The family of this 176-nucleotide RNA is "malK-I RNA".
Pairs were carried over by alignment from the consensus structure, which is taken from published work.
RNA sequence: UCCAAUGGGGCGGCGCCACUCCACAUAAUGGCCCCGUUCACAUUCAAGAAGGAGGAAGUCAUCCCGCAGGCCCGCGGUGCGGCAGUGUGGAGACCUGUCGUAAUGCGGUUCGCUUUCAGGAAGCGACGCGAGAUCGCCCAUGCGGAGGCAGGGCGAUCAGGGCAUACGCUAUGUCU
Number, nucleotide and partner (000 for none) at each position: 001u000002c000003c000004a000005a000006u000007g000008g039009g038010g037011c036012g035013g034014c000015g032016c031017c030018a029019c000020u000021c000022c000023a000024c000025a000026u000027a000028a000029u018030g017031g016032c015033c000034c013035c012036g011037u010038u009039c008040a000041c000042a000043u000044u000045c000046a000047a000048g000049a000050a000051g000052g000053a000054g000055g000056a000057a000058g000059u000060c000061a000062u000063c000064c077065c076066g075067c074068a165069g000070g163071c162072c161073c160074g067075c066076g065077g064078u102079g101080c100081g099082g098083c097084a096085g095086u000087g094088u093089g000090g000091a000092g000093a088094c087095c085096u084097g083098u082099c081100g080101u079102a078103a000104u000105g129106c128107g127108g000109u000110u126111c125112g124113c123114u000115u000116u000117c000118a000119g000120g000121a000122a000123g113124c112125g111126a110127c107128g106129c105130g000131a000132g158133a157134u156135c155136g154137c153138c152139c151140a000141u150142g149143c148144g000145g000146a000147g000148g143149c142150a141151g139152g138153g137154c136155g135156a134157u133158c132159a000160g073161g072162g071163c070164a000165u068166a000167c000168g000169c000170u000171a000172u000173g000174u000175c000176u000